Rfam assigns this 124-nucleotide RNA from Otolemur garnettii to the family "Small nucleolar RNA SNORA11". Rfam classes the family as an H/ACA-box small nucleolar RNA. Rfam describes the family as follows. U107 (SNORA11) is a member of the H/ACA class of snoRNAs that guide the sites of modification of uridines to pseudouridines. Pairs were carried over by alignment from the consensus structure, which was predicted with RNAalifold. Gene Ontology terms of the family: nucleolus and RNA processing.
[Rfam]
RNA sequence: GGGGUGUGCUCAGAGCAAGGGGCCUAAAGAAUAGCUGUUUAUAACACACCCAACAGGAAUCUGGGGUCAUCGUAAUGAGUGACACAAAACCUGUAGCCUCCCUAUGAACAAAUUCUCUACAUGU
Numbered sequence: 001g002g003g004g005u006g007u008g009c010u011c012a013g014a015g016c017a018a019g020g021g022g023c024c025u026a027a028a029g030a031a032u033a034g035c036u037g038u039u040u041a042u043a044a045c046a047c048a049c050c051c052a053a054c055a056g057g058a059a060u061c062u063g064g065g066g067u068c069a070u071c072g073u074a075a076u077g078a079g080u081g082a083c084a085c086a087a088a089a090c091c092u093g094u095a096g097c098c099u100c101c102c103u104a105u106g107a108a109c110a111a112a113u114u115c116u117c118u119a120c121a122u123g124u
Stems, first nucleotide, its partner, number of pairs: 002051007013040005022035002064117003072109002076106002079099001081097001084094003